Rfam assigns this 110-nucleotide RNA from Fervidicola ferrireducens to the family "SAM riboswitch aptamer (S box leader)".

RNA sequence: UUCUUAUCAAGAGCGGUGGAGGGACUGGCCCAAUGAAACCCGGCAACCCGCAUCGUACAAGAUGCGAAGGUGCCAAUUCCUGCAGGACGAAAUGUCCUGAGAGAUAAGAA
Numbered sequence: 001u002u003c004u005u006a007u008c009a010a011g012a013g014c015g016g017u018g019g020a021g022g023g024a025c026u027g028g029c030c031c032a033a034u035g036a037a038a039c040c041c042g043g044c045a046a047c048c049c050g051c052a053u054c055g056u057a058c059a060a061g062a063u064g065c066g067a068a069g070g071u072g073c074c075a076a077u078u079c080c081u082g083c084a085g086g087a088c089g090a091a092a093u094g095u096c097c098u099g100a101g102a103g104a105u106a107a108g109a110a
Stems, first nucleotide, its partner, number of pairs: 001110008013041001015040003021031003025082001027080002042074004047070002049066004078102001083099006